Shown here is a 153-nucleotide RNA sequence from Megamonas hypermegale, a member of the family "glmS glucosamine-6-phosphate activated ribozyme aptamer".
Rfam classes the family as a riboswitch.
The family's consensus secondary structure is taken from published work.
The match comes from Rfam's covariance-model search (77 bits).
RNA sequence: UUUUACACUUUAGCGCUGGCUCUGCAUGAGUUUAAGCAGAGUACGAGGAAGAAGUCGUCGAAAUAUCAGCGGAUGCUUCUCGGCUUGGUCUAGUCGAUAAAAACUGACAAAACUUUUAAGCGAUUAAAAGGACAAUACAGUAAAAGACCUCAA
Numbered sequence: 001u002u003u004u005a006c007a008c009u010u011u012a013g014c015g016c017u018g019g020c021u022c023u024g025c026a027u028g029a030g031u032u033u034a035a036g037c038a039g040a041g042u043a044c045g046a047g048g049a050a051g052a053a054g055u056c057g058u059c060g061a062a063a064u065a066u067c068a069g070c071g072g073a074u075g076c077u078u079c080u081c082g083g084c085u086u087g088g089u090c091u092a093g094u095c096g097a098u099a100a101a102a103a104c105u106g107a108c109a110a111a112a113c114u115u116u117u118a119a120g121c122g123a124u125u126a127a128a129a130g131g132a133c134a135a136u137a138c139a140g141u142a143a144a145a146g147a148c149c150u151c152a153a
Base pairs, nucleotide, nucleotide: 020041021040022039023038024037025036027034050080051079052078053077054076058069060067061066081096082095083094084093085092103141104140105139106138113130114129115128116127117126118125119124